The family of this 131-nucleotide RNA from Albula glossodonta is "Small Cajal body specific RNA 8".
scaRNAs are a specific class of small nuclear RNAs which localise to the Cajal bodies and guide the modification of RNA polymerase II transcribed spliceosomal RNAs U1, U2, U4, U5 and U12.
It is annotated as a small Cajal body RNA.
The match comes from Rfam's covariance-model search (110 bits).
On this family, see Darzacq et al., EMBO J 2002: "Cajal body-specific small nuclear RNAs: a novel class of 2'-O-methylation and pseudouridylation guide RNAs".
RNA sequence: UGGGAGGCUGAUACCCGGACCGUCCGGAACGGUGGCCUGUCCGUCACUAGCCCUCCCCACAGUAUCCCUGCUCUCCUUUGACUGGGGCGACGUGAGGGAAAUCGCCACAGACAGAUACGGAGCAGACACCC
Numbered sequence: 001u002g003g004g005a006g007g008c009u010g011a012u013a014c015c016c017g018g019a020c021c022g023u024c025c026g027g028a029a030c031g032g033u034g035g036c037c038u039g040u041c042c043g044u045c046a047c048u049a050g051c052c053c054u055c056c057c058c059a060c061a062g063u064a065u066c067c068c069u070g071c072u073c074u075c076c077u078u079u080g081a082c083u084g085g086g087g088c089g090a091c092g093u094g095a096g097g098g099a100a101a102u103c104g105c106c107a108c109a110g111a112c113a114g115a116u117a118c119g120g121a122g123c124a125g126a127c128a129c130c131c
Stems, first nucleotide, its partner, number of pairs: 002057006016043003022037001024035002068125007082110003087105004
Rfam links the family to the GO terms RNA processing, Cajal body and nucleolus.